[Rfam]
RNA: Rhizobiales sRNA Atu_At1
RNA sequence: GCGGUCCGUGUAUCAACCGGAUGUGACGGCAGAAGGAACGCUGCGGUUUUUCUGGUUUCCCGCUACGGCCGAAGAAAUGGCAGUCGAGCCUUUUCCCCGUCCACGGA
Numbered sequence: 001g002c003g004g005u006c007c008g009u010g011u012a013u014c015a016a017c018c019g020g021a022u023g024u025g026a027c028g029g030c031a032g033a034a035g036g037a038a039c040g041c042u043g044c045g046g047u048u049u050u051u052c053u054g055g056u057u058u059c060c061c062g063c064u065a066c067g068g069c070c071g072a073a074g075a076a077a078u079g080g081c082a083g084u085c086g087a088g089c090c091u092u093u094u095c096c097c098c099g100u101c102c103a104c105g106g107a
Stems, first nucleotide, its partner, number of pairs: 006106004011023004025101003028097002033092004039067002043063003068081003